[Rfam]
The record is a 68-nucleotide sequence from Parafrankia soli, which matches "Transposase-2 RNA" in Rfam. The family's consensus secondary structure is taken from published work. The family's RNA type in Rfam is small RNA. Rfam 15.1 lists 214 matches to the family in 110 species. It scores 52 bits against the family's covariance model.

RNA sequence: GAAACGGGAACCCGGCACCCGCAUCAGCGGGCCAGGCCGGGGGUGCCCCGCCGAGAGGCGAGGCGGCA
Numbered sequence: 001g002a003a004a005c006g007g008g009a010a011c012c013c014g015g016c017a018c019c020c021g022c023a024u025c026a027g028c029g030g031g032c033c034a035g036g037c038c039g040g041g042g043g044u045g046c047c048c049c050g051c052c053g054a055g056a057g058g059c060g061a062g063g064c065g066g067c068a
Stems, first nucleotide, its partner, number of pairs: 011041005019030004045064003049060004